RNA sequence: CGAACCCGCACGGGAGAGUUCCCAGCCUUCGAAUCCGAGGGCUCUGGGACGCCGAAGGAGCAAACCCUCCCCGGAAUCUCUCAGGCAUCCGUACCGUGUGGGAUAG
Numbered sequence: 001c002g003a004a005c006c007c008g009c010a011c012g013g014g015a016g017a018g019u020u021c022c023c024a025g026c027c028u029u030c031g032a033a034u035c036c037g038a039g040g041g042c043u044c045u046g047g048g049a050c051g052c053c054g055a056a057g058g059a060g061c062a063a064a065c066c067c068u069c070c071c072c073g074g075a076a077u078c079u080c081u082c083a084g085g086c087a088u089c090c091g092u093a094c095c096g097u098g099u100g101g102g103a104u105a106g
Stems, first nucleotide, its partner, number of pairs: 006101008020049006051086003054082002058080003065073001
The record is a 106-nucleotide RNA sequence from Kitasatospora viridis, which matches "Glycine riboswitch aptamer" in Rfam. It scores 66 bits against the family's covariance model.